[Rfam]
Small nucleolar RNA R38: an 84-nucleotide RNA from Varanus komodoensis.
It scores 55 bits against the family's covariance model.
The family's consensus secondary structure was predicted with PFOLD.
NCBI's taxonomy places the organism under Eukaryota, Opisthokonta, Bilateria, Toxicofera, Varanus.
About the family: snoR38 is a C/D box small nucleolar RNA conserved across yeast, human, Arabidopsis and rice. It is encoded in the intron of elongation factor-1 gamma in both pombe and cerevisiae. snoR38 guides the methylation of 2'-O-ribose sites in 28S rRNA.
Nucleotides: 084
Stems, first nucleotide, its partner, number of pairs: 001084007
Number, partner (000 for none) and nucleotide at each position: 001084c002083u003082g004081a005080g006079c007078u008000u009000g010000u011000g012000a013000u014000g015000a016000c017000a018000c019000a020000a021000a022000a023000a024000g025000u026000u027000a028000u029000c030000c031000c032000u033000g034000u035000c036000u037000g038000a039000a040000a041000u042000g043000g044000a045000a046000g047000c048000u049000u050000u051000u052000c053000u054000g055000a056000c057000u058000u059000g060000u061000g062000g063000a064000g065000u066000u067000g068000u069000g070000g071000a072000u073000u074000c075000u076000g077000a078007a079006g080005c081004u082003c083002a084001g